[Rfam]
Mammalian CPEB3 ribozyme: a 79-nucleotide RNA sequence from Alligator mississippiensis. The mammalian CPEB3 ribozyme is a self cleaving RNA located in the second intron of the CPEB3 gene which belongs to a family of genes regulating messenger RNA polyadenylation. Lineage of the source: Eukaryota > Sarcopterygii > Tetrapoda > Archosauria > Alligator. The literature on the family includes a 2006 paper in Science by Salehi-Ashtiani et al., "A genomewide search for ribozymes reveals an HDV-like sequence in the human CPEB3 gene".
RNA sequence: UGUGCUCUGACAGGAACCCCACUGGAGAAGUGCUCGUGGUGCGGCCCUGUCAGAUUCCAACGAAUCUGUGAAUUCUGCC
Numbered sequence: 001u002g003u004g005c006u007c008u009g010a011c012a013g014g015a016a017c018c019c020c021a022c023u024g025g026a027g028a029a030g031u032g033c034u035c036g037u038g039g040u041g042c043g044g045c046c047c048u049g050u051c052a053g054a055u056u057c058c059a060a061c062g063a064a065u066c067u068g069u070g071a072a073u074u075c076u077g078c079c
Stems, first nucleotide, its partner, number of pairs: 013047002019044002024078001026076004030042003051068007